RNA sequence: CCUCUUUGCAAGUCCGGUCGCCCGCUCUAUAUAGGACCCGUCGGGGCAACCCGACUAUGGGGCUAAACCCAUUGCGGAAUAAGCGUUACGGACCCGGGGGCGGUACCCGGCGGCUCCACCAACCUCACCCGGCGGGCUAACGUCGGUGGCAAGGGGCCGAAAUAGGAUCGACGUGCGUGGUAAAGGCAUUGGCUGUCCCCGGCAUGGCUCCACCGUUAUCGGGCCAAACGCAAUAGUUGCCAACGACAACUUUGCUGAGGUUCGCGCUGCUGCGUAAUGCGGCAUCGUAAACCGACUUGAAGUCCUGGCGGUUAGCCCCGUCGGGCGGGGUCCGGGAGGCACCUGGCAACAGAAGCCUCCCACU
Numbered sequence: 001c002c003u004c005u006u007u008g009c010a011a012g013u014c015c016g017g018u019c020g021c022c023c024g025c026u027c028u029a030u031a032u033a034g035g036a037c038c039c040g041u042c043g044g045g046g047c048a049a050c051c052c053g054a055c056u057a058u059g060g061g062g063c064u065a066a067a068c069c070c071a072u073u074g075c076g077g078a079a080u081a082a083g084c085g086u087u088a089c090g091g092a093c094c095c096g097g098g099g100g101c102g103g104u105a106c107c108c109g110g111c112g113g114c115u116c117c118a119c120c121a122a123c124c125u126c127a128c129c130c131g132g133c134g135g136g137c138u139a140a141c142g143u144c145g146g147u148g149g150c151a152a153g154g155g156g157c158c159g160a161a162a163u164a165g166g167a168u169c170g171a172c173g174u175g176c177g178u179g180g181u182a183a184a185g186g187c188a189u190u191g192g193c194u195g196u197c198c199c200c201g202g203c204a205u206g207g208c209u210c211c212a213c214c215g216u217u218a219u220c221g222g223g224c225c226a227a228a229c230g231c232a233a234u235a236g237u238u239g240c241c242a243a244c245g246a247c248a249a250c251u252u253u254g255c256u257g258a259g260g261u262u263c264g265c266g267c268u269g270c271u272g273c274g275u276a277a278u279g280c281g282g283c284a285u286c287g288u289a290a291a292c293c294g295a296c297u298u299g300a301a302g303u304c305c306u307g308g309c310g311g312u313u314a315g316c317c318c319c320g321u322c323g324g325g326c327g328g329g330g331u332c333c334g335g336g337a338g339g340c341a342c343c344u345g346g347c348a349a350c351a352g353a354a355g356c357c358u359c360c361c362a363c364u
Stems, first nucleotide, its partner, number of pairs: 040055005059199005069192003073188003084177003088174003094110005111159007200215003205226003209223003328344004335360006
RNA: Alphaproteobacteria transfer-messenger RNA
Organism: Caenispirillum bisanense